[Rfam]
RNA sequence: GCAACUCUGGAAAGCGUGCGUCCUCGUUGACGCUCCACCCACGGUGCAAGCCGCGACAGCCACGGCGAAGCUCUCAGGUUCCGCAACAGAGGGGGAGGC
Numbered sequence: 001g002c003a004a005c006u007c008u009g010g011a012a013a014g015c016g017u018g019c020g021u022c023c024u025c026g027u028u029g030a031c032g033c034u035c036c037a038c039c040c041a042c043g044g045u046g047c048a049a050g051c052c053g054c055g056a057c058a059g060c061c062a063c064g065g066c067g068a069a070g071c072u073c074u075c076a077g078g079u080u081c082c083g084c085a086a087c088a089g090a091g092g093g094g095g096a097g098g099c
Base pairs, nucleotide, nucleotide: 002094005091006090007089008088009087016035018033019032020031021030022029037079038078039077041074044073046071050066051065052064053063
Rfam assigns this 99-nucleotide RNA sequence from Saccharopolyspora phatthalungensis to the family "Glycine riboswitch aptamer". The organism belongs to Saccharopolyspora, within Bacteria.